[Rfam]
RNA sequence: AACUUUGAGUAAUUGCGGUCUGCUAAUGCAGGCUGAGGAAAGUCCAUGCUCGCACAGGCUGAGAUGCUUGUAGUGUUCGUGCUUAGCGAAACAAUAAGCUAAGGCAAUUUUAUAUUGACGGCAGAAAAAAUGGCUACGGCUCAUGCUAUGCCAAAGUAUUCUUGAAAGUGCCACAGUGACGAAGCAUUAUUGGAAACGAUAAUGGUGGAACGCGGUAAACCCCUCGAGCGAGCAACCCAAACAUUUGGUAGGGGCACUCUUAAUAGGAAUUAAACGAAAAAAGAGGCACAUUUUGUGUAGACAGAUGAUUACUGAAGCUAAUUGCACCUGACAAUUAGUGGAACAGAACAUGGCUUAUAGAA
Number, nucleotide and partner (000 for none) at each position: 001a000002a000003c000004u362005u361006u360007g358008a313009g312010u311011a310012a309013u308014u307015g000016c035017g034018g033019u032020c031021u030022g000023c000024u000025a000026a000027u000028g000029c000030a021031g020032g019033c018034u017035g016036a000037g000038g000039a000040a356041a355042g354043u000044c353045c352046a351047u350048g349049c232050u231051c230052g229053c228054a071055c070056a069057g068058g067059c066060u000061g000062a000063g000064a000065u000066g059067c058068u057069u056070g055071u054072a000073g000074u000075g000076u000077u227078c226079g225080u000081g223082c103083u102084u101085a100086g099087c098088g000089a000090a000091a000092c000093a000094a000095u000096a000097a000098g087099c086100u085101a084102a083103g082104g119105c117106a116107a115108u114109u000110u000111u000112a000113u000114a108115u107116u106117g105118a000119c104120g222121g221122c000123a162124g161125a160126a159127a000128a000129a000130a000131u153132g152133g151134c150135u000136a000137c000138g147139g146140c145141u000142c000143a000144u000145g140146c139147u138148a000149u000150g134151c133152c132153a131154a000155a000156g000157u000158a000159u126160u125161c124162u123163u000164g000165a000166a000167a000168g220169u219170g216171c215172c214173a000174c000175a000176g000177u000178g000179a000180c000181g000182a000183a000184g000185c204186a203187u202188u201189a200190u199191u198192g197193g000194a000195a000196a000197c192198g191199a190200u189201a188202a187203u186204g185205g000206u000207g000208g000209a000210a000211c000212g000213c000214g172215g171216u170217a000218a000219a169220c168221c121222c120223c081224u000225c079226g078227a077228g053229c052230g051231a050232g049233c000234a000235a000236c253237c252238c251239a000240a000241a000242c000243a000244u000245u000246u000247g000248g000249u000250a000251g238252g237253g236254g000255c000256a000257c285258u284259c283260u282261u280262a000263a000264u000265a000266g000267g000268a000269a000270u000271u000272a000273a000274a000275c000276g000277a000278a000279a000280a261281a000282a260283g259284a258285g257286g298287c297288a296289c295290a294291u000292u000293u000294u290295g289296u288297g287298u286299a000300g000301a000302c000303a000304g000305a000306u000307g014308a013309u012310u011311a010312c009313u008314g000315a000316a000317g339318c338319u337320a336321a335322u334323u333324g332325c000326a000327c000328c000329u000330g000331a000332c324333a323334a322335u321336u320337a319338g318339u317340g000341g000342a000343a000344c000345a000346g000347a000348a000349c048350a047351u046352g045353g044354c042355u041356u040357a000358u007359a000360g006361a005362a004
Rfam assigns this 362-nucleotide sequence from Granulicatella balaenopterae to the family "Bacterial RNase P class B". Clan: RNaseP clan. A search with the family's covariance model found it, with a score of 328 bits. For this family Rfam cites "Ribonuclease P: unity and diversity in a tRNA processing ribozyme" (Frank and Pace, Annu Rev Biochem, 1998). NCBI's taxonomy places the organism under Bacteria, Bacillati, Bacillota, Lactobacillales, Granulicatella. Rfam classes the family as a ribozyme.